[Rfam]
RNA sequence: ACGAUGUUCCGCUGCAAUCAUUAAUGGAUUGGCAAGAGCAUUUU
Numbered sequence: 001a002c003g004a005u006g007u008u009c010c011g012c013u014g015c016a017a018u019c020a021u022u023a024a025u026g027g028a029u030u031g032g033c034a035a036g037a038g039c040a041u042u043u044u
Stems, first nucleotide, its partner, number of pairs: 003042007013034002015031004
Dot-bracket structure: ..(((((((...((((((.........)))).)).)))))))..

This 44-nucleotide RNA from Bacillus sp. MUM 13 belongs to the Rfam family "Ribosomal protein L19 leader". It scores 41 bits against the family's covariance model. Its family is annotated with regulation of gene expression in the Gene Ontology. On this family, see Zengel and Lindahl, Prog Nucleic Acid Res Mol Biol 1994: "Diverse mechanisms for regulating ribosomal protein synthesis in Escherichia coli". Rfam describes the family as follows. This family is a putative r-protein leader autoregulatory structure found in B. subtilis and other low-GC Gram-positive bacteria. It is located in the 5' untranslated regions of mRNAs encoding ribosomal protein L19 (rplS). The base pairs follow the family's consensus structure, which was predicted with CMfinder. Rfam classes the family as a cis-regulatory leader. The organism belongs to Bacillus, within Bacteria.